[Rfam]
RNA sequence: GUUGCUUCAUACUGGUGAACUCUUCCUAUUGAAGUGGAAGAUGUUCAUGUUUCCGAAGCAUAGAUUGAUCUCCAGUAUUAAACAGCACAGUGUAUUCCUUUCUAUGUAUUUUCACUGUGUUACCUGUCUCCUGGUACAUUU
Numbered sequence: 001g002u003u004g005c006u007u008c009a010u011a012c013u014g015g016u017g018a019a020c021u022c023u024u025c026c027u028a029u030u031g032a033a034g035u036g037g038a039a040g041a042u043g044u045u046c047a048u049g050u051u052u053c054c055g056a057a058g059c060a061u062a063g064a065u066u067g068a069u070c071u072c073c074a075g076u077a078u079u080a081a082a083c084a085g086c087a088c089a090g091u092g093u094a095u096u097c098c099u100u101u102c103u104a105u106g107u108a109u110u111u112u113c114a115c116u117g118u119g120u121u122a123c124c125u126g127u128c129u130c131c132u133g134g135u136a137c138a139u140u141u
Stems, first nucleotide, its partner, number of pairs: 003060006016047005021041005072134004077129001084121003088117005
RNA: small nucleolar RNA snoR137